[Rfam]
RNA: Small nucleolar RNA SNORD77
RNA sequence: AUACUAUGAAGGCUGCAUUGUUCAGCAGGUUGAAUCAUGAAAAGAGGCAUCGUUUAUUUCAUGUAUCU
Numbered sequence: 001a002u003a004c005u006a007u008g009a010a011g012g013c014u015g016c017a018u019u020g021u022u023c024a025g026c027a028g029g030u031u032g033a034a035u036c037a038u039g040a041a042a043a044g045a046g047g048c049a050u051c052g053u054u055u056a057u058u059u060c061a062u063g064u065a066u067c068u
Stems, first nucleotide, its partner, number of pairs: 001066004006038004013028004043055003047051001